Description
A member of the RNA family "THF (Tetrahydrofolate) riboswitch aptamer" from Lapidilactobacillus concavus, 96 nucleotides long. The match comes from Rfam's covariance-model search (62 bits). Its family is annotated with tetrahydrofolate metabolic process in the Gene Ontology. Pairs were carried over by alignment from the consensus structure, which is taken from published work. NCBI's taxonomy places the organism under Bacteria, Bacilli, Lactobacillales, Lactobacillaceae, Lapidilactobacillus concavus. From the family's description: Tetrahydrofolate (THF) riboswitch was first reported for Ames et al. as an RNA motif in 5' untranslated (5'-UTR)regions of folate transport and biosynthesis genes in Firmicutes genomes.

[Rfam]
RNA sequence: UUCGGAGUAGGCAAUUAAGCGUUAAGUGCUAGCGGAACGGAAUGUGAACGUUAGCUUAAAAGGGUAAUCCGCGAUUUAAUUGCCGCAUUCGCCGCA
Numbered sequence: 001u002u003c004g005g006a007g008u009a010g011g012c013a014a015u016u017a018a019g020c021g022u023u024a025a026g027u028g029c030u031a032g033c034g035g036a037a038c039g040g041a042a043u044g045u046g047a048a049c050g051u052u053a054g055c056u057u058a059a060a061a062g063g064g065u066a067a068u069c070c071g072c073g074a075u076u077u078a079a080u081u082g083c084c085g086c087a088u089u090c091g092c093c094g095c096a
Stems, first nucleotide, its partner, number of pairs: 001096001003094003010084010020073003026056001029054006040090005062070002
Dot-bracket structure: (.(((....(((((((((((((...(..((((((.....[[[[[....)))))).).....((.....))))).)))))))))).]]]]].))).)